Shown here is a 123-nucleotide RNA from Anopheles gambiae, a member of the family "U5 spliceosomal RNA". U5 RNA is a component of both types of known spliceosome. The precise function of this molecule is unknown, though it is known that the 5' loop is required for splice site selection and p220 binding, and that both the 3' stem-loop and the Sm site are important for Sm protein binding and cap methylation. Rfam links the family to the GO terms U5 snRNP and spliceosomal tri-snRNP complex assembly. The sequence is in the family's curated seed alignment. By type it is a spliceosomal small nuclear RNA. The organism belongs to Anopheles gambiae, within Eukaryota. Pairs were carried over by alignment from the consensus structure, which is taken from published work.

RNA sequence: GCACUCUGAUCUCUCUUCAACUGUCGAAUAAAUCUUUCGCCUUUUACUAAAGAUUUCCGUGGAGAGGGAUACUCUAAUGAGUCUAUAGAGAAUUUUUGUCCGUCUCGAUUCCGUAAGGAGUCG
Numbered sequence: 001g002c003a004c005u006c007u008g009a010u011c012u013c014u015c016u017u018c019a020a021c022u023g024u025c026g027a028a029u030a031a032a033u034c035u036u037u038c039g040c041c042u043u044u045u046a047c048u049a050a051a052g053a054u055u056u057c058c059g060u061g062g063a064g065a066g067g068g069a070u071a072c073u074c075u076a077a078u079g080a081g082u083c084u085a086u087a088g089a090g091a092a093u094u095u096u097u098g099u100c101c102g103u104c105u106c107g108a109u110u111c112c113g114u115a116a117g118g119a120g121u122c123g
Stems, first nucleotide, its partner, number of pairs: 003082004009070011030056008100123001102122001104120003